The family of this 91-nucleotide RNA sequence from Ovis aries is "mir-339 microRNA precursor family".

RNA sequence: CGGGGCAGCCGCUGUCCCUGUCCUCCAGGAGCUCACUUGGUCCGGCCGUGCGCUCCUCGAGGCCAGAGCCCGCGUCUGCUUCCCGCCAGCA
Numbered sequence: 001c002g003g004g005g006c007a008g009c010c011g012c013u014g015u016c017c018c019u020g021u022c023c024u025c026c027a028g029g030a031g032c033u034c035a036c037u038u039g040g041u042c043c044g045g046c047c048g049u050g051c052g053c054u055c056c057u058c059g060a061g062g063c064c065a066g067a068g069c070c071c072g073c074g075u076c077u078g079c080u081u082c083c084c085g086c087c088a089g090c091a
Base pairs, nucleotide, nucleotide: 005079006078007077008076010074011073012072016068018066019065020064022062024060025059027057028056029055031053032052034050035049036048037045038044039043
The family has 12 seed sequences and 128 matches in Rfam 15.1. A search with the family's covariance model found it, with a score of 81 bits.